[Rfam]
PyrR binding site: a 106-nucleotide sequence from Oceanobacillus oncorhynchi. Lineage of the source: Bacteria > Bacillati > Bacillota > Bacillaceae > Oceanobacillus. Rfam classes the family as a cis-regulatory element. Gene Ontology terms of the family: pyrimidine nucleobase transport and pyrimidine nucleobase biosynthetic process. Rfam's curators write: This family represents the PyrR binding site and terminator structure. The family's consensus secondary structure is taken from published work.

RNA sequence: AUAACUUUUAAUCAGAUCCAGAGAGAUUUGAAAGGUUGUUCAGAAUAGCGAAUGCUUAUAGGGUAUUCGUCUAGCUCUCUGCAGCCUUUGCAGGGAGCUUUUUUUU
Numbered sequence: 001a002u003a004a005c006u007u008u009u010a011a012u013c014a015g016a017u018c019c020a021g022a023g024a025g026a027u028u029u030g031a032a033a034g035g036u037u038g039u040u041c042a043g044a045a046u047a048g049c050g051a052a053u054g055c056u057u058a059u060a061g062g063g064u065a066u067u068c069g070u071c072u073a074g075c076u077c078u079c080u081g082c083a084g085c086c087u088u089u090g091c092a093g094g095g096a097g098c099u100u101u102u103u104u105u106u
Stems, first nucleotide, its partner, number of pairs: 003037007013030006048070009073099012